[Rfam]
RNA sequence: AUAAAGGUUAACUUACAUGUGUCACUCUAUUCGCCUACUAAACCUACUACUACUCGCCUUAAAUGCGCGCGGUGUAAUGGUGGGUGAAAGACUGAAUUAAGUUAACCCCCAUUAAAAAACCCGCGCAUGGCGCGGGUUUUUUU
Numbered sequence: 001a002u003a004a005a006g007g008u009u010a011a012c013u014u015a016c017a018u019g020u021g022u023c024a025c026u027c028u029a030u031u032c033g034c035c036u037a038c039u040a041a042a043c044c045u046a047c048u049a050c051u052a053c054u055c056g057c058c059u060u061a062a063a064u065g066c067g068c069g070c071g072g073u074g075u076a077a078u079g080g081u082g083g084g085u086g087a088a089a090g091a092c093u094g095a096a097u098u099a100a101g102u103u104a105a106c107c108c109c110c111a112u113u114a115a116a117a118a119a120c121c122c123g124c125g126c127a128u129g130g131c132g133c134g135g136g137u138u139u140u141u142u143u
Stems, first nucleotide, its partner, number of pairs: 006107005012101004031087010048074004055069003116140011
Rfam assigns this 143-nucleotide RNA from Xenorhabdus szentirmaii to the family "Leucine operon leader". Taxonomically the source falls in Xenorhabdus szentirmaii (Bacteria, Pseudomonadota, Morganellaceae, Xenorhabdus). From the family's description: At least 6 amino acid operons are known to be regulated by attenuation. Rfam links the family to the GO term leucine biosynthetic process. A reference for the family is Kolter and Yanofsky (1982), "Attenuation in amino acid biosynthetic operons", Annu Rev Genet.